[Rfam]
The family of this 74-nucleotide RNA sequence from Myotis davidii is "mir-9193 microRNA precursor family". Taxonomically the source falls in Myotis (Eukaryota, Eumetazoa, Bilateria, Craniata).
RNA sequence: CGGGGGGAGGGGGGAUCACUCAGCCUGGAUUGCAAGAGGGCGCAGGCCAGGCCAAGGGAUCCCACUGGUGCAUG
Dot-bracket structure: ...(.(..((.((((((.((..(((.((.((((........)))).)).)))..)).)))))).))..).)...
Rfam links the family to the GO terms miRNA-mediated post-transcriptional gene silencing and RISC complex.